Shown here is a 128-nucleotide sequence from Myotis myotis, a member of the family "Small nucleolar RNA SNORA33".
[Rfam]
RNA sequence: AAUCCAAGACAUGCAUUAGCAUAAAGUAUCUGACAACAGAAGUCUUCACAAUUCUUGGUAAUAGUAAAGCCAUGUUUUGAGCCUUAAAGACACUGAAGUCAUUAAGGUCCCUGAAAAUGGUUAUGAGA
Numbered sequence: 001a002a003u004c005c006a007a008g009a010c011a012u013g014c015a016u017u018a019g020c021a022u023a024a025a026g027u028a029u030c031u032g033a034c035a036a037c038a039g040a041a042g043u044c045u046u047c048a049c050a051a052u053u054c055u056u057g058g059u060a061a062u063a064g065u066a067a068a069g070c071c072a073u074g075u076u077u078u079g080a081g082c083c084u085u086a087a088a089g090a091c092a093c094u095g096a097a098g099u100c101a102u103u104a105a106g107g108u109c110c111c112u113g114a115a116a117a118u119g120g121u122u123a124u125g126a127g128a
Stems, first nucleotide, its partner, number of pairs: 004058004069121004081108007089100003
Background: Rfam describes the family as follows. ACA33 is a member of the H/ACA class of snoRNA that guide the sites of modification of uridines to pseudouridines. The organism belongs to Myotis, within Eukaryota. Its family is annotated with nucleolus and RNA processing in the Gene Ontology. The family has 28 seed sequences and 1,176 matches in Rfam 15.1.